About this RNA
The record is a 50-nucleotide RNA from Azorhizobium caulinodans, which matches "Guanidine-II riboswitch aptamer (mini-ykkC)" in Rfam. A search with the family's covariance model found it, with a score of 44 bits.
RNA sequence: CGACCGGGACGACCCGGUUGCUGUCGAGGGGCCCGGCCGGGACGACCCGG
Numbered sequence: 001c002g003a004c005c006g007g008g009a010c011g012a013c014c015c016g017g018u019u020g021c022u023g024u025c026g027a028g029g030g031g032c033c034c035g036g037c038c039g040g041g042a043c044g045a046c047c048c049g050g
Stems, first nucleotide, its partner, number of pairs: 001020008037050005

Description: Simpler in structure and has fewer highly conserved nucleotide positions than the ykkC-yxkD leader. Despite this each of its two stem-loop structures directly bind free guanidine. Therefore, mini-ykkC RNA motif represents a distinct class of guanidine-sensing RNAs. Its crystal structure was also determined.